[Rfam]
RNA sequence: AGCUAGAUGAUGACAAUUGUUGGUCUGAAGUAAAUGUUGAAAUUAAACAUCACAAUGACCUUCAAAGUUCUCUGAUUGCU
Numbered sequence: 001a002g003c004u005a006g007a008u009g010a011u012g013a014c015a016a017u018u019g020u021u022g023g024u025c026u027g028a029a030g031u032a033a034a035u036g037u038u039g040a041a042a043u044u045a046a047a048c049a050u051c052a053c054a055a056u057g058a059c060c061u062u063c064a065a066a067g068u069u070c071u072c073u074g075a076u077u078g079c080u
Base pairs, nucleotide, nucleotide: 001080002079003078005076
Shown here is an 80-nucleotide RNA sequence from Zingiber officinale, a member of the family "Small nucleolar RNA R160". Taxonomically the source falls in Zingiber (Eukaryota, Streptophyta, Streptophytina, commelinids). snoR160 is a C/D box small nucleolar RNA, which acts as a methylation guide for 25S ribosomal RNA in plants. snoR160 has been alternatively named snoZ270 in rice. Rfam links the family to the GO terms RNA processing and nucleolus. It scores 57 bits against the family's covariance model. A reference for the family is Chen et al. (2003), "The high diversity of snoRNAs in plants: identification and comparative study of 120 snoRNA genes from Oryza sativa", Nucleic Acids Res. Rfam classes the family as a C/D-box small nucleolar RNA.